This 103-nucleotide RNA sequence from Flintibacter hominis belongs to the Rfam family "azaaromatic riboswitch aptamer (yjdF RNA)".

RNA sequence: AGGGGCAGAGAUAAAAACACAAGGCGGUUGGUAGUCCGUCCGCGGGUCCGCGCUCCCGUAAGUAGCCUUCCCUCCCGGGUCGUCCCUUCUCUGACGUGUCAUG
Numbered sequence: 001a002g003g004g005g006c007a008g009a010g011a012u013a014a015a016a017a018c019a020c021a022a023g024g025c026g027g028u029u030g031g032u033a034g035u036c037c038g039u040c041c042g043c044g045g046g047u048c049c050g051c052g053c054u055c056c057c058g059u060a061a062g063u064a065g066c067c068u069u070c071c072c073u074c075c076c077g078g079g080u081c082g083u084c085c086c087u088u089c090u091c092u093g094a095c096g097u098g099u100c101a102u103g
Base pairs, nucleotide, nucleotide: 004095006093007092008091009090010089011088023040024039025038026037027036042059043058044057045056046055070079071078072077

Pairs were carried over by alignment from the consensus structure, which is taken from published work.